[Rfam]
RNA: TPP riboswitch aptamer (THI element)
RNA sequence: AACAUACGACAGGGGAGCGCCUGCGUCCGGCCCACAGGGCCGUGCCACCAGGGCGCUGAGAGUGCGGAUUGCCGCAGACCCUCGAACCUGCUCCGGCUAGUACCGGCGAAGGGAGUCGAGAUCUCAGGGAA
Numbered sequence: 001a002a003c004a005u006a007c008g009a010c011a012g013g014g015g016a017g018c019g020c021c022u023g024c025g026u027c028c029g030g031c032c033c034a035c036a037g038g039g040c041c042g043u044g045c046c047a048c049c050a051g052g053g054c055g056c057u058g059a060g061a062g063u064g065c066g067g068a069u070u071g072c073c074g075c076a077g078a079c080c081c082u083c084g085a086a087c088c089u090g091c092u093c094c095g096g097c098u099a100g101u102a103c104c105g106g107c108g109a110a111g112g113g114a115g116u117c118g119a120g121a122u123c124u125c126a127g128g129g130a131a
Stems, first nucleotide, its partner, number of pairs: 007118004011082004017056005063076005087112003093106004
Dot-bracket structure: ......((((((((..(((((..............................)))))......(((((....)))))..))))....(((...((((......))))...)))..)))).............